[Rfam]
RNA sequence: AAGCUUCAUGCCCUCUUUGUACAGCGGUAUCACUCUAAAGUUAUUUUAUAUAAUUUGGUUGGAUGUGAUAUCCAGCACUAUUUUUGUUUGGAGGAGCAGAGAUUGAAAGCCUAGCUUUUACACCGGUUUGAGUCGGUCCCUUCGUAUUUUUUUCAGUCGGGGUUGAUAUAGAAGUGUGUGAACAAUU
Numbered sequence: 001a002a003g004c005u006u007c008a009u010g011c012c013c014u015c016u017u018u019g020u021a022c023a024g025c026g027g028u029a030u031c032a033c034u035c036u037a038a039a040g041u042u043a044u045u046u047u048a049u050a051u052a053a054u055u056u057g058g059u060u061g062g063a064u065g066u067g068a069u070a071u072c073c074a075g076c077a078c079u080a081u082u083u084u085u086g087u088u089u090g091g092a093g094g095a096g097c098a099g100a101g102a103u104u105g106a107a108a109g110c111c112u113a114g115c116u117u118u119u120a121c122a123c124c125g126g127u128u129u130g131a132g133u134c135g136g137u138c139c140c141u142u143c144g145u146a147u148u149u150u151u152u153u154c155a156g157u158c159g160g161g162g163u164u165g166a167u168a169u170a171g172a173a174g175u176g177u178g179u180g181a182a183c184a185a186u187u
Stems, first nucleotide, its partner, number of pairs: 012094005026072008034063005039055006118181006132167009
Dot-bracket structure: ...........(((((.........(((((((((((((((((((.....))))))...))))).)))))))).................))))).......................((((((........(((((((((..................)))))))))........))))))......
This 187-nucleotide sequence from Saccharomyces uvarum belongs to the Rfam family "Small nucleolar RNA snR33". The family's RNA type in Rfam is H/ACA-box small nucleolar RNA. The base pairs follow the family's consensus structure, which was predicted with WAR. It is one of the family's seed sequences.